[Rfam]
A member of the RNA family "Purine riboswitch aptamer" from Cetobacterium somerae, 98 nucleotides long. The family's consensus secondary structure is taken from published work. It scores 68 bits against the family's covariance model.
RNA sequence: UUUUAGAAAAAUUAUAAAACUUAUAUAUAUUUGGGAUAUGGCCAAAAGUUUCUACACCAAACCGUAAAUUUGGUACUAUAGGUAAAAGUUGACUUAAA
Numbered sequence: 001u002u003u004u005a006g007a008a009a010a011a012u013u014a015u016a017a018a019a020c021u022u023a024u025a026u027a028u029a030u031u032u033g034g035g036a037u038a039u040g041g042c043c044a045a046a047a048g049u050u051u052c053u054a055c056a057c058c059a060a061a062c063c064g065u066a067a068a069u070u071u072g073g074u075a076c077u078a079u080a081g082g083u084a085a086a087a088g089u090u091g092a093c094u095u096a097a098a
Base pairs, nucleotide, nucleotide: 019083020082021081022080023079024078025077030046031045032044033043034042056074057073058072059071060070061069